This 125-nucleotide sequence from Cnephaeus nilssonii belongs to the Rfam family "Small nucleolar RNA SNORA28".
NCBI's taxonomy places the organism under Eukaryota, Bilateria, Chordata, Theria, Cnephaeus.
The literature on the family includes a 2001 paper in EMBO J by Huttenhofer et al., "RNomics: an experimental approach that identifies 201 candidates for novel, small, non-messenger RNAs in mouse".
The base pairs follow the family's consensus structure, which was predicted with RNAfold.
A search with the family's covariance model found it, with a score of 92 bits.
Gene Ontology terms of the family: RNA processing and nucleolus.
Rfam describes the family as follows. ACA28 is a member of the H/ACA class of snoRNA that guide the sites of modification of uridines to pseudouridines.
RNA sequence: AAAUAAAUCUCUUUCCUUUUUACCAAAACAGACAGACAUAACUUGAACUUGCUAUAGCAAUAAAGUCUAACCUAUUCCAGUGUUCUCUCCUCUAUCAGACAAGCUGUUAUAUAGAAUUAGACAGU
Numbered sequence: 001a002a003a004u005a006a007a008u009c010u011c012u013u014u015c016c017u018u019u020u021u022a023c024c025a026a027a028a029c030a031g032a033c034a035g036a037c038a039u040a041a042c043u044u045g046a047a048c049u050u051g052c053u054a055u056a057g058c059a060a061u062a063a064a065g066u067c068u069a070a071c072c073u074a075u076u077c078c079a080g081u082g083u084u085c086u087c088u089c090c091u092c093u094a095u096c097a098g099a100c101a102a103g104c105u106g107u108u109a110u111a112u113a114g115a116a117u118u119a120g121a122c123a124g125u
Stems, first nucleotide, its partner, number of pairs: 010046002012040001014038001016035002019032003063118002066115004073111003078106004086099003